[Rfam]
The family of this 73-nucleotide RNA from a Candidatus Nomurabacteria bacterium is "tRNA".
RNA sequence: GCGCGGUUAGCUCAGUUGGUAGAGCAACCCGUUUACACCGGGAAGGUCGGGGGUUCGAGUCCCUCACCGCGCA
Numbered sequence: 001g002c003g004c005g006g007u008u009a010g011c012u013c014a015g016u017u018g019g020u021a022g023a024g025c026a027a028c029c030c031g032u033u034u035a036c037a038c039c040g041g042g043a044a045g046g047u048c049g050g051g052g053g054u055u056c057g058a059g060u061c062c063c064u065c066a067c068c069g070c071g072c073a
Stems, first nucleotide, its partner, number of pairs: 001072007010025004028042004049065005
Its family is annotated with triplet codon-amino acid adaptor activity in the Gene Ontology. The organism belongs to Candidatus Nomuraibacteriota, within Bacteria. Rfam classes the family as a transfer RNA.